Record summary: The record is a 132-nucleotide sequence from Alteromonadaceae bacterium 2753L.S.0a.02, which matches "RtT RNA" in Rfam. The source organism's lineage runs through Bacteria, Pseudomonadati, Pseudomonadota, Alteromonadales and Alteromonadaceae. It is annotated as a cis-regulatory element. From the family's description: This family represents a bacterial cis-regulatory element known as RtT RNA. The exact function of RtT is unknown although it is thought that it may be involved in changing the cellular response in relation to amino acid starvation. Rfam links the family to the GO term cellular response to amino acid starvation.
[Rfam]
RNA sequence: AAGGAUCUACGUUGGGGGUGGGUGAGAACCACCGCCUGGUUCGACUCCCCGCGCAGCGGGGUGAGCGCCGGCUCUGCCGGCGACCCAAAGGGUGAGGGGCGUUAGCCCUGAAUAAUCCACCCCCCCCUGCAC
Numbered sequence: 001a002a003g004g005a006u007c008u009a010c011g012u013u014g015g016g017g018g019u020g021g022g023u024g025a026g027a028a029c030c031a032c033c034g035c036c037u038g039g040u041u042c043g044a045c046u047c048c049c050c051g052c053g054c055a056g057c058g059g060g061g062u063g064a065g066c067g068c069c070g071g072c073u074c075u076g077c078c079g080g081c082g083a084c085c086c087a088a089a090g091g092g093u094g095a096g097g098g099g100c101g102u103u104a105g106c107c108c109u110g111a112a113u114a115a116u117c118c119a120c121c122c123c124c125c126c127c128u129g130c131a132c
Base pairs, nucleotide, nucleotide: 015123016122017121018120019119020118021117023115033094034093036092037091040089041088043086047059048058066082067081068080069079070078071077